[Rfam]
RNA sequence: CCUGCAAUCGCAGGACGGAAUGUGGCGAGCGGGAUUCUGCGAAUCCCGCUCGCUGAACCACUCA
Numbered sequence: 001c002c003u004g005c006a007a008u009c010g011c012a013g014g015a016c017g018g019a020a021u022g023u024g025g026c027g028a029g030c031g032g033g034a035u036u037c038u039g040c041g042a043a044u045c046c047c048g049c050u051c052g053c054u055g056a057a058c059c060a061c062u063c064a
Base pairs, nucleotide, nucleotide: 001014002013003012004011005010017059018058024054025053026052027051028050029049030048031047032046033045034044035043036042037041
RNA: eL15-Euryarchaeota ribosomal protein leader